The family of this 79-nucleotide sequence from Novosphingobium hassiacum is "Makes More Granules Regulator RNA (mmgR)". The match comes from Rfam's covariance-model search (50 bits).
RNA sequence: CGGACGGGCCUUUCAGGCAUCCUCUCCCAAAACUUCAAAGGGCCGCCCCGGCAACGGAGCGGCCCCUUUUUUGCCCUGG
Numbered sequence: 001c002g003g004a005c006g007g008g009c010c011u012u013u014c015a016g017g018c019a020u021c022c023u024c025u026c027c028c029a030a031a032a033c034u035u036c037a038a039a040g041g042g043c044c045g046c047c048c049c050g051g052c053a054a055c056g057g058a059g060c061g062g063c064c065c066c067u068u069u070u071u072u073g074c075c076c077u078g079g
Stems, first nucleotide, its partner, number of pairs: 008018004041064006048057002